RNA sequence: UGGGUCGGUGAGACGGUCGCGUCGCGCAUCGCUUGCGAUGUCGCGCCGAGGAACGUCCGGGCUCCGCAGGGGAGAACGGUGGCUAACGGCCACCCGGGGCAACCCGCGAGAAAGUGCAACAGAGAGUAGACCGCCAGUCGGGAGUAUUUCCGGUCGGUAAGGCUGAAAGGGUGGUGUAAGAGACCACCGGCGUCCGUGGCGACACGGGCGGCCAGGUAAACCUCGUUCGGAGCAAGGCCAGACAGAGGAUGAUGACGCGCCCCGCCGAGUCCUCGGGUAGGCCGCUAGAGGGUGUCGGCAACGGCAUCCCGAGAGAGAUGACCGUCGCCCGGGAAACCGGGAGACAGAACCCGGCGUAUGAUCCGGCCCAUUCC
Numbered sequence: 001u002g003g004g005u006c007g008g009u010g011a012g013a014c015g016g017u018c019g020c021g022u023c024g025c026g027c028a029u030c031g032c033u034u035g036c037g038a039u040g041u042c043g044c045g046c047c048g049a050g051g052a053a054c055g056u057c058c059g060g061g062c063u064c065c066g067c068a069g070g071g072g073a074g075a076a077c078g079g080u081g082g083c084u085a086a087c088g089g090c091c092a093c094c095c096g097g098g099g100c101a102a103c104c105c106g107c108g109a110g111a112a113a114g115u116g117c118a119a120c121a122g123a124g125a126g127u128a129g130a131c132c133g134c135c136a137g138u139c140g141g142g143a144g145u146a147u148u149u150c151c152g153g154u155c156g157g158u159a160a161g162g163c164u165g166a167a168a169g170g171g172u173g174g175u176g177u178a179a180g181a182g183a184c185c186a187c188c189g190g191c192g193u194c195c196g197u198g199g200c201g202a203c204a205c206g207g208g209c210g211g212c213c214a215g216g217u218a219a220a221c222c223u224c225g226u227u228c229g230g231a232g233c234a235a236g237g238c239c240a241g242a243c244a245g246a247g248g249a250u251g252a253u254g255a256c257g258c259g260c261c262c263c264g265c266c267g268a269g270u271c272c273u274c275g276g277g278u279a280g281g282c283c284g285c286u287a288g289a290g291g292g293u294g295u296c297g298g299c300a301a302c303g304g305c306a307u308c309c310c311g312a313g314a315g316a317g318a319u320g321a322c323c324g325u326c327g328c329c330c331g332g333g334a335a336a337c338c339g340g341g342a343g344a345c346a347g348a349a350c351c352c353g354g355c356g357u358a359u360g361a362u363c364c365g366g367c368c369c370a371u372u373c374c
Stems, first nucleotide, its partner, number of pairs: 001370008011359001012326007020048002023045004053357003057354005062232004069262003074228005079093005094108001095106004109223002114221002116217002131162002133158003137154007170188006190212001191210008236283004245274006253267002256264002290309008
RNA: Bacterial RNase P class A